[Rfam]
RNA sequence: UUUGGGAAGUGAUGAUAAGAUAUAUCGAUUAUGUCAUAGGCACAUGCGAUGCUGAACAACAUAUUUGCACUGAUCCCGUU
Numbered sequence: 001u002u003u004g005g006g007a008a009g010u011g012a013u014g015a016u017a018a019g020a021u022a023u024a025u026c027g028a029u030u031a032u033g034u035c036a037u038a039g040g041c042a043c044a045u046g047c048g049a050u051g052c053u054g055a056a057c058a059a060c061a062u063a064u065u066u067g068c069a070c071u072g073a074u075c076c077c078g079u080u
Stems, first nucleotide, its partner, number of pairs: 003078005
RNA: Small nucleolar RNA Z122
Organism: Arabis nemorensis